The record is a 96-nucleotide RNA, which matches "skipping-rope RNA" in Rfam.
Rfam's curators put it in the seed alignment.
It is annotated as a small RNA.

[Rfam]
RNA sequence: GUUGUUUGAGGUGGAAAAUUUCGUUGCGUCCACACGCCGACGGUACUGACAGGGGAAACCCGAGAGAUGCGGGAGCUGCGACGCCCGCCAAAUAGC
Numbered sequence: 001g002u003u004g005u006u007u008g009a010g011g012u013g014g015a016a017a018a019u020u021u022c023g024u025u026g027c028g029u030c031c032a033c034a035c036g037c038c039g040a041c042g043g044u045a046c047u048g049a050c051a052g053g054g055g056a057a058a059c060c061c062g063a064g065a066g067a068u069g070c071g072g073g074a075g076c077u078g079c080g081a082c083g084c085c086c087g088c089c090a091a092a093u094a095g096c
Base pairs, nucleotide, nucleotide: 001096002095003094004093005092006091007090008089011033012032013031014030015029023082024081025080026079027078035064036044037043038042069088070087071086072085073084